[Rfam]
RNA sequence: AAAUCAGCCGGACAUACGUAAGUUGCAAGUACCGGAGAUUUAGUCUUACAC
Numbered sequence: 001a002a003a004u005c006a007g008c009c010g011g012a013c014a015u016a017c018g019u020a021a022g023u024u025g026c027a028a029g030u031a032c033c034g035g036a037g038a039u040u041u042a043g044u045c046u047u048a049c050a051c
Stems, first nucleotide, its partner, number of pairs: 001040002004037001008035002011033001012030002018049005

A member of the RNA family "Exoribonuclease-resistant RNA (xrRNA) plant-infecting virus (class 3)" from Polerovirus CYDVRPS, 51 nucleotides long. On this family, see Gezelle et al., bioRxiv [Preprint] 2024: "The pseudoknot structure of a viral RNA reveals a conserved mechanism for programmed exoribonuclease resistance". The family's RNA type in Rfam is cis-regulatory element. Exoribonuclease-resistant RNA (xrRNA) plant-infecting virus (class 3) is a ncRNA that was reported in Plant viruses.